[Rfam]
RNA sequence: GCGCCGGGACGGCCCGGCGCUGGCAAAGCAAGGCGGGACGGCCCG
Numbered sequence: 001g002c003g004c005c006g007g008g009a010c011g012g013c014c015c016g017g018c019g020c021u022g023g024c025a026a027a028g029c030a031a032g033g034c035g036g037g038a039c040g041g042c043c044c045g
Stems, first nucleotide, its partner, number of pairs: 001020008034045004
Dot-bracket structure: ((((((((....)))))))).............((((....))))
About this RNA:
A member of the RNA family "Guanidine-II riboswitch aptamer (mini-ykkC)" from Methylomonas sp. DH-1, 45 nucleotides long. NCBI's taxonomy places the organism under Bacteria, Pseudomonadati, Pseudomonadota, Methylococcaceae, Methylomonas. The base pairs follow the family's consensus structure, which is taken from published work.